Vertebrate telomerase RNA: a 447-nucleotide sequence from Chinchilla chinchilla. About the family: Telomerase is a ribonucleoprotein reverse transcriptase that synthesises telomeric DNA. Telomerase RNAs differ greatly in sequence and structure between vertebrates, ciliates and yeasts, but they share a 5' pseudoknot structure close to the template sequence. Vertebrate telomerase RNAs have a 3' H/ACA snoRNA-like domain. For this family Rfam cites "Secondary structure of vertebrate telomerase RNA" (Chen et al., Cell, 2000).
RNA sequence: GGGUUGAGAAUGGUGGGCCGGGAGGGGAGGUGGGCAUGUUUUGUCUAACCCUAACUAGGAGGAGGACGUAGGCGCCGUGCUUUUGUUCCCCGCGCGCUGUUUUUCUCGCUGACUUUCAGCGUGCGGAAAAGCCUUGGCCUGCCGUCGACCACUGUCUAAUUAAAAGCAAACAAAAAAUGUCAGCGUGGCCGGUCCGCCCCUCCCGGGUACCUGCGGCAGCUCGCCCGGCUGGCCCCCGAGCCCCGCCCAGGGCCACGGCUGGCGCGGGGCUUCUCCGGGAGCGCCAUGGCCGCCGCGAAGAGUUCGUCUCUGUCAGCCGCGGGUCGCGCGGGGGCCGCGGGGGAGUCCUAGGCCGAGUGGCCGCAGGAAGAGAAACGGAGCCUGUCCCUGUGCACGGGGCGCUUCUCUGAGCUGUGGGAAGUGCCCCGAGACUCGGCUCCUACAAGC
Numbered sequence: 001g002g003g004u005u006g007a008g009a010a011u012g013g014u015g016g017g018c019c020g021g022g023a024g025g026g027g028a029g030g031u032g033g034g035c036a037u038g039u040u041u042u043g044u045c046u047a048a049c050c051c052u053a054a055c056u057a058g059g060a061g062g063a064g065g066a067c068g069u070a071g072g073c074g075c076c077g078u079g080c081u082u083u084u085g086u087u088c089c090c091c092g093c094g095c096g097c098u099g100u101u102u103u104u105c106u107c108g109c110u111g112a113c114u115u116u117c118a119g120c121g122u123g124c125g126g127a128a129a130a131g132c133c134u135u136g137g138c139c140u141g142c143c144g145u146c147g148a149c150c151a152c153u154g155u156c157u158a159a160u161u162a163a164a165a166g167c168a169a170a171c172a173a174a175a176a177a178u179g180u181c182a183g184c185g186u187g188g189c190c191g192g193u194c195c196g197c198c199c200c201u202c203c204c205g206g207g208u209a210c211c212u213g214c215g216g217c218a219g220c221u222c223g224c225c226c227g228g229c230u231g232g233c234c235c236c237c238g239a240g241c242c243c244c245g246c247c248c249a250g251g252g253c254c255a256c257g258g259c260u261g262g263c264g265c266g267g268g269g270c271u272u273c274u275c276c277g278g279g280a281g282c283g284c285c286a287u288g289g290c291c292g293c294c295g296c297g298a299a300g301a302g303u304u305c306g307u308c309u310c311u312g313u314c315a316g317c318c319g320c321g322g323g324u325c326g327c328g329c330g331g332g333g334g335c336c337g338c339g340g341g342g343g344a345g346u347c348c349u350a351g352g353c354c355g356a357g358u359g360g361c362c363g364c365a366g367g368a369a370g371a372g373a374a375a376c377g378g379a380g381c382c383u384g385u386c387c388c389u390g391u392g393c394a395c396g397g398g399g400c401g402c403u404u405c406u407c408u409g410a411g412c413u414g415u416g417g418g419a420a421g422u423g424c425c426c427c428g429a430g431a432c433u434c435g436g437c438u439c440c441u442a443c444a445a446g447c
Stems, first nucleotide, its partner, number of pairs: 018207002020204008029195002032190002035187002079132005091125009108184006114177003210367007223347001225345001226343001229340002233334006242323005254297001256295003260292004267285002299311004378439004384432003388428001397426005404419004